[Rfam]
RNA sequence: GGCAACUUGCCCCAGAUUGGGGGUGUUGUAAUGUUGAACAAUCUUCUUACGUUGAUUAUCGCACCGGUUGUUACUGGGAUAGUCAUAGAACUAUUUUCUUAUUGGUUGAAUAAGAAAGACGAUAAUUAAGCAAGUUGCUUUCAACUCACACGAUAGUAAUCGCAACUAUCGAAAAA
Numbered sequence: 001g002g003c004a005a006c007u008u009g010c011c012c013c014a015g016a017u018u019g020g021g022g023g024u025g026u027u028g029u030a031a032u033g034u035u036g037a038a039c040a041a042u043c044u045u046c047u048u049a050c051g052u053u054g055a056u057u058a059u060c061g062c063a064c065c066g067g068u069u070g071u072u073a074c075u076g077g078g079a080u081a082g083u084c085a086u087a088g089a090a091c092u093a094u095u096u097u098c099u100u101a102u103u104g105g106u107u108g109a110a111u112a113a114g115a116a117a118g119a120c121g122a123u124a125a126u127u128a129a130g131c132a133a134g135u136u137g138c139u140u141u142c143a144a145c146u147c148a149c150a151c152g153a154u155a156g157u158a159a160u161c162g163c164a165a166c167u168a169u170c171g172a173a174a175a176a
Stems, first nucleotide, its partner, number of pairs: 001139008011023003025039003053128009064076001066074001079094005095109002099105002151171005
Description: Enterococcus sRNA B11: a 176-nucleotide RNA sequence from Periweissella fabalis. NCBI's taxonomy places the organism under Bacteria, Bacillati, Bacillota, Lactobacillaceae, Periweissella. The family's consensus secondary structure was predicted with RNAfold. A reference for the family is Shioya et al. (2011), "Genome-wide identification of small RNAs in the opportunistic pathogen Enterococcus faecalis V583", PLoS One. The match comes from Rfam's covariance-model search (80 bits).